A member of the RNA family "MIR396 microRNA precursor family" from Lupinus angustifolius, 109 nucleotides long. The source organism's lineage runs through Eukaryota, Streptophyta, Streptophytina, genistoids sensu lato and Lupinus. It scores 91 bits against the family's covariance model. For this family Rfam cites "Computational identification of plant microRNAs and their targets, including a stress-induced miRNA" (Jones-Rhoades and Bartel, Mol Cell, 2004).

[Rfam]
RNA sequence: CUUUGUAUUCUUCCACAGCUUUCUUGAACUGCAUCUAAGAGUUCCUUUGCAUGCAUGUAAUGUACUCUCCAACUCUGCGGUUCAAUAAAGCUGUGGGAAGAUACAGAAA
Numbered sequence: 001c002u003u004u005g006u007a008u009u010c011u012u013c014c015a016c017a018g019c020u021u022u023c024u025u026g027a028a029c030u031g032c033a034u035c036u037a038a039g040a041g042u043u044c045c046u047u048u049g050c051a052u053g054c055a056u057g058u059a060a061u062g063u064a065c066u067c068u069c070c071a072a073c074u075c076u077g078c079g080g081u082u083c084a085a086u087a088a089a090g091c092u093g094u095g096g097g098a099a100g101a102u103a104c105a106g107a108a109a
Base pairs, nucleotide, nucleotide: 003106004105005104006103007102013096014095015094017092018091019090020089021088022087024085025084026083027082029080030079031078032077033076